[Rfam]
RNA sequence: AUUCAAACAGAGAGAAGCUUCCUGGUCCGCGCCGAGGUACUUGCUCGUUCAGGGCCAAGUCCGUUGUUUGUCCGGUCCACUGUCGGGUUUUGAUUCACAGAUGUUAGAAUGACGGUCUCGAUCCAUCAGGUCUGAUACGGUUGCGGCUUGGCGAUGAAAAUGUAUGGUUGCGAAAGGUCGGAUGUAGUGGUGAGAUUCUUCCAUUCAACCUGCCCUACUAAUUUGGAUUCUGUUGUCUCUAUUUGAGGAUGAAGGAGAUUACACGGUGUCCAAGGCGGGACCCAUCUCGAGUUGGUGUCAAAGCUUAGUGCUUGUCUG
Numbered sequence: 001a002u003u004c005a006a007a008c009a010g011a012g013a014g015a016a017g018c019u020u021c022c023u024g025g026u027c028c029g030c031g032c033c034g035a036g037g038u039a040c041u042u043g044c045u046c047g048u049u050c051a052g053g054g055c056c057a058a059g060u061c062c063g064u065u066g067u068u069u070g071u072c073c074g075g076u077c078c079a080c081u082g083u084c085g086g087g088u089u090u091u092g093a094u095u096c097a098c099a100g101a102u103g104u105u106a107g108a109a110u111g112a113c114g115g116u117c118u119c120g121a122u123c124c125a126u127c128a129g130g131u132c133u134g135a136u137a138c139g140g141u142u143g144c145g146g147c148u149u150g151g152c153g154a155u156g157a158a159a160a161u162g163u164a165u166g167g168u169u170g171c172g173a174a175a176g177g178u179c180g181g182a183u184g185u186a187g188u189g190g191u192g193a194g195a196u197u198c199u200u201c202c203a204u205u206c207a208a209c210c211u212g213c214c215c216u217a218c219u220a221a222u223u224u225g226g227a228u229u230c231u232g233u234u235g236u237c238u239c240u241a242u243u244u245g246a247g248g249a250u251g252a253a254g255g256a257g258a259u260u261a262c263a264c265g266g267u268g269u270c271c272a273a274g275g276c277g278g279g280a281c282c283c284a285u286c287u288c289g290a291g292u293u294g295g296u297g298u299c300a301a302a303g304c305u306u307a308g309u310g311c312u313u314g315u316c317u318g
Base pairs, nucleotide, nucleotide: 279299280298281297282295283294284293301313302312303311304310
This 318-nucleotide part of an RNA from Amorphotheca resinae belongs to the Rfam family "Ascomycota telomerase RNA". The source organism's lineage runs through Eukaryota, Opisthokonta, Ascomycota, leotiomyceta and Amorphotheca resinae. The family has 4 seed sequences and 475 matches in Rfam 15.1. Its Rfam clan is "Telomerase clan". Pairs were carried over by alignment from the consensus structure. For this family Rfam cites "The common ancestral core of vertebrate and fungal telomerase RNAs" (Qi et al., Nucleic Acids Res, 2013). The match comes from Rfam's covariance-model search (136 bits).